[Rfam]
RNA sequence: CGUGGCGGUGGUGACUGGCGUCGGGUGGAGCACCACCGGGAAGCGACCGCCGGGCUCGACUCCGUCGCCGUACGCCUGGGCGCCGGGG
Number, nucleotide and partner (000 for none) at each position: 001c000002g000003u052004g051005g050006c049007g048008g047009u046010g000011g044012u043013g000014a000015c040016u039017g076018g075019c074020g073021u072022c000023g000024g000025g036026u035027g034028g033029a000030g000031c000032a000033c028034c027035a026036c025037c000038g000039g016040g015041a000042a000043g012044c011045g000046a009047c008048c007049g006050c005051c004052g003053g000054g000055c000056u000057c000058g000059a000060c000061u000062c000063c000064g000065u000066c082067g081068c080069c079070g000071u000072a021073c020074g019075c018076c017077u000078g000079g069080g068081c067082g066083c000084c000085g000086g000087g000088g000
RNA: ZMP/ZTP riboswitch aptamer (pfl RNA motif)